[Rfam]
RNA sequence: CGAGACCCCCCGAUGGCCGCGGCCCCGACCUUCAUUGGGACGGGCUGAGGAACUUCCGGGCUCCGCAGAGCACGAUGGCGGAUAACGUCCGCCCAGGGCGACCUGAGAGCUAGCGCAACAGAGAACAGACCGCCUCCCCUCGGGAGGCAAGGGUGAAACGGCGGUGUAAGAGACCACCGGGCCCCUGGUAACAGCGGGCCGCAUGGCAAGCCUCAUCGGGAGCAAGGCCAAGCAGAUGACGGCAAGGGCUGCUCGUCCGUGUCAUCGGGUAGGCCGCUAGAGCCUGGCGGCGACGUCAGGUCGAGAUGGAUGGCCAUCCGCGCCGCUUCGCGCGGCGUGACAGAACCCGGGGUACAAGGGGUCUCGUCCU
Number, nucleotide and partner (000 for none) at each position: 001c366002g365003a364004g363005a362006c361007c360008c359009c358010c000011c000012g318013a317014u316015g315016g314017c313018c312019g000020c047021g046022g045023c044024c043025c042026c000027g000028a000029c000030c000031u000032u000033c000034a000035u000036u000037g000038g000039g000040a000041c000042g025043g024044g023045c022046u021047g020048a000049g000050g000051a000052a353053c352054u351055u000056c350057c349058g348059g347060g346061c222062u221063c220064c219065g000066c000067a000068g254069a253070g252071c251072a000073c218074g217075a216076u215077g214078g092079c091080g090081g089082a088083u000084a000085a000086c000087g000088u082089c081090c080091g079092c078093c107094c105095a104096g103097g102098g000099c000100g000101a000102c097103c096104u095105g094106a000107g093108a213109g212110c000111u000112a000113g211114c210115g207116c206117a000118a000119c000120a000121g000122a000123g000124a000125a000126c000127a000128g000129a000130c152131c151132g148133c147134c146135u145136c144137c143138c142139c000140u000141c000142g138143g137144g136145a135146g134147g133148c132149a000150a000151g131152g130153g000154u000155g000156a000157a000158a000159c000160g178161g177162c000163g175164g174165u173166g000167u000168a000169a000170g000171a000172g000173a165174c164175c163176a000177c161178c160179g202180g200181g199182c198183c197184c196185c194186u193187g192188g000189u000190a000191a000192c187193a186194g185195c000196g184197g183198g182199c181200c180201g000202c179203a000204u000205g000206g116207c115208a000209a000210g114211c113212c109213u108214c077215a076216u075217c074218g073219g064220g063221a062222g061223c000224a000225a000226g275227g274228c273229c272230a000231a000232g000233c000234a000235g266236a265237u264238g263239a262240c261241g000242g000243c000244a000245a000246g258247g257248g256249c255250u000251g071252c070253u069254c068255g249256u248257c247258c246259g000260u000261g240262u239263c238264a237265u236266c235267g000268g000269g000270u000271a000272g229273g228274c227275c226276g000277c000278u000279a000280g000281a000282g301283c300284c299285u298286g297287g296288c295289g294290g000291c000292g000293a000294c289295g288296u287297c286298a285299g284300g283301u282302c000303g000304a000305g000306a000307u000308g000309g000310a000311u000312g018313g017314c016315c015316a014317u013318c012319c000320g000321c000322g000323c000324c000325g000326c000327u000328u000329c000330g000331c000332g000333c000334g000335g000336c000337g000338u000339g000340a000341c000342a000343g000344a000345a000346c060347c059348c058349g057350g056351g054352g053353u052354a000355c000356a000357a000358g009359g008360g007361g006362u005363c004364u003365c002366g001367u000368c000369c000370u000
This 370-nucleotide RNA from Bifidobacterium pullorum belongs to the Rfam family "Bacterial RNase P class A". A search with the family's covariance model found it, with a score of 270 bits.